[Rfam]
RNA sequence: AUGAAUGUGAUGAAUAUUUCCCCAGAUGAUUCGACGCUGAAAUAACUGAGCGCUCCUUUAUUUUCUUCCAUUCCGAGAAAAUUCAAGCCAAAAGUCUGAUCCGU
Numbered sequence: 001a002u003g004a005a006u007g008u009g010a011u012g013a014a015u016a017u018u019u020c021c022c023c024a025g026a027u028g029a030u031u032c033g034a035c036g037c038u039g040a041a042a043u044a045a046c047u048g049a050g051c052g053c054u055c056c057u058u059u060a061u062u063u064u065c066u067u068c069c070a071u072u073c074c075g076a077g078a079a080a081a082u083u084c085a086a087g088c089c090a091a092a093a094g095u096c097u098g099a100u101c102c103g104u
Stems, first nucleotide, its partner, number of pairs: 001104003005100001